This 165-nucleotide RNA from Pelodiscus sinensis belongs to the Rfam family "U1 spliceosomal RNA".
[Rfam]
RNA sequence: CGGCGUCUCUGGAUGGGGGAGAUACCAUGCUCACGAAGGUGGUUUCCCCAGGGUGAGGCUCAUCCAGUGCACUGAGGGUGUGCUGACCCCUGCGAUUUCCCCAAAUGCGGGAAAUUCGACUGCAUGAUUUGUGGUAGAGGGGGACUGCGUUCACGCUUUCCCCUG
Numbered sequence: 001c002g003g004c005g006u007c008u009c010u011g012g013a014u015g016g017g018g019g020a021g022a023u024a025c026c027a028u029g030c031u032c033a034c035g036a037a038g039g040u041g042g043u044u045u046c047c048c049c050a051g052g053g054u055g056a057g058g059c060u061c062a063u064c065c066a067g068u069g070c071a072c073u074g075a076g077g078g079u080g081u082g083c084u085g086a087c088c089c090c091u092g093c094g095a096u097u098u099c100c101c102c103a104a105a106u107g108c109g110g111g112a113a114a115u116u117c118g119a120c121u122g123c124a125u126g127a128u129u130u131g132u133g134g135u136a137g138a139g140g141g142g143g144a145c146u147g148c149g150u151u152c153a154c155g156c157u158u159u160c161c162c163c164u165g
Base pairs, nucleotide, nucleotide: 012123015120016049017048018047019046020045021044024043025042026041027040028039050091051090052089053088055087057084058083059082061080062079063078064077065076093118094117095116096114097113098112100110101109138164139163140162141161142160144159147156148155149154
About the family: U1 is a small nuclear RNA (snRNA) component of the spliceosome (involved in pre-mRNA splicing). Its 5' end forms complementary base pairs with the 5' splice junction, thus defining the 5' donor site of an intron. There are significant differences in sequence and secondary structure between metazoan and yeast U1 snRNAs, the latter being much longer (568 nucleotides as compared to 164 nucleotides in human). Nevertheless, secondary structure predictions suggest that all U1 snRNAs share a 'common core' consisting of helices I, II, the proximal region of III, and IV. This family does not contain the larger yeast sequences.
It is annotated as a spliceosomal small nuclear RNA.